[Rfam]
RNA sequence: AUGCAGGAUCUACUUACAGUGUAGCUGUGAAGUGCUGCACUGCCUUUGCCCCCUGCUUAAAACAAAGCUGUCACCAUUCCAACCCUGUCUGCUCUGGUGCUGUAGCAGGCAGGGAUGUAUGGUGGCAUACAU
Numbered sequence: 001a002u003g004c005a006g007g008a009u010c011u012a013c014u015u016a017c018a019g020u021g022u023a024g025c026u027g028u029g030a031a032g033u034g035c036u037g038c039a040c041u042g043c044c045u046u047u048g049c050c051c052c053c054u055g056c057u058u059a060a061a062a063c064a065a066a067g068c069u070g071u072c073a074c075c076a077u078u079c080c081a082a083c084c085c086u087g088u089c090u091g092c093u094c095u096g097g098u099g100c101u102g103u104a105g106c107a108g109g110c111a112g113g114g115a116u117g118u119a120u121g122g123u124g125g126c127a128u129a130c131a132u
Stems, first nucleotide, its partner, number of pairs: 003056005017042009084113004089108004
Dot-bracket structure: ..(((((.........(((((((((........))))))))).........)))))...........................((((.((((............)))).))))...................